[Rfam]
RNA sequence: GGGCUUUGAGGUGGUAGAUUUCGUAGCGACCACACGCCGAUGGCACGACAGGGGAAACCCGAGAGAUGCAGGAGAAUGCUACGCCUGCCAAAGUCC
Numbered sequence: 001g002g003g004c005u006u007u008g009a010g011g012u013g014g015u016a017g018a019u020u021u022c023g024u025a026g027c028g029a030c031c032a033c034a035c036g037c038c039g040a041u042g043g044c045a046c047g048a049c050a051g052g053g054g055a056a057a058c059c060c061g062a063g064a065g066a067u068g069c070a071g072g073a074g075a076a077u078g079c080u081a082c083g084c085c086u087g088c089c090a091a092a093g094u095c096c
Stems, first nucleotide, its partner, number of pairs: 001096008011033005023082005035063001036044003068088005